[Rfam]
RNA sequence: AACCACACUAUCGAAUAAUGGAUUCACCCAUGUGAUAACGUGGUUGUUCCAUCAAGGAUGAGGACGUGGCAUCCUAUUAAUUUCAUACGAUGAGUGGUAAUAGGAUGCCAUGUCCUCAUCCUAGGUAAAACAGUCACGUCAUCUCGCGGGAGAAUCCAUUCAUUGAUAGUGUGGUU
Numbered sequence: 001a002a003c004c005a006c007a008c009u010a011u012c013g014a015a016u017a018a019u020g021g022a023u024u025c026a027c028c029c030a031u032g033u034g035a036u037a038a039c040g041u042g043g044u045u046g047u048u049c050c051a052u053c054a055a056g057g058a059u060g061a062g063g064a065c066g067u068g069g070c071a072u073c074c075u076a077u078u079a080a081u082u083u084c085a086u087a088c089g090a091u092g093a094g095u096g097g098u099a100a101u102a103g104g105a106u107g108c109c110a111u112g113u114c115c116u117c118a119u120c121c122u123a124g125g126u127a128a129a130a131c132a133g134u135c136a137c138g139u140c141a142u143c144u145c146g147c148g149g150g151a152g153a154a155u156c157c158a159u160u161c162a163u164u165g166a167u168a169g170u171g172u173g174g175u176u
Stems, first nucleotide, its partner, number of pairs: 001176007009168006017160003021156005027150002031146002035142002038139002041136008051126002055122001057120002063114003069108011086097001
RNA: MIR807 microRNA precursor family
Organism: Oryza meridionalis